Shown here is a 154-nucleotide RNA from Amborella trichopoda, a member of the family "MIR8565 microRNA precursor family". Gene Ontology terms of the family: RISC complex and miRNA-mediated post-transcriptional gene silencing. Pairs were carried over by alignment from the consensus structure, which was predicted with RNAalifold.
RNA sequence: CUCACACCCAUGUGUGUAGGACCCCAAAGGAUUACUAUUAAAUUUGGCAUAGAUCUCUAGAAAAUUUAUCACAUGUGUGUGAGACUUGACUUUUCUAGAUAUCUGUGUCAAAUUUAAUGGUAAUCCUUUUGGGUCCAACACACAUGGGUGUGGG
Numbered sequence: 001c002u003c004a005c006a007c008c009c010a011u012g013u014g015u016g017u018a019g020g021a022c023c024c025c026a027a028a029g030g031a032u033u034a035c036u037a038u039u040a041a042a043u044u045u046g047g048c049a050u051a052g053a054u055c056u057c058u059a060g061a062a063a064a065u066u067u068a069u070c071a072c073a074u075g076u077g078u079g080u081g082a083g084a085c086u087u088g089a090c091u092u093u094u095c096u097a098g099a100u101a102u103c104u105g106u107g108u109c110a111a112a113u114u115u116a117a118u119g120g121u122a123a124u125c126c127u128u129u130u131g132g133g134u135c136c137a138a139c140a141c142a143c144a145u146g147g148g149u150g151u152g153g154g
Stems, first nucleotide, its partner, number of pairs: 002153012015140003019136006026129003030125003034121021056099009066089003069082005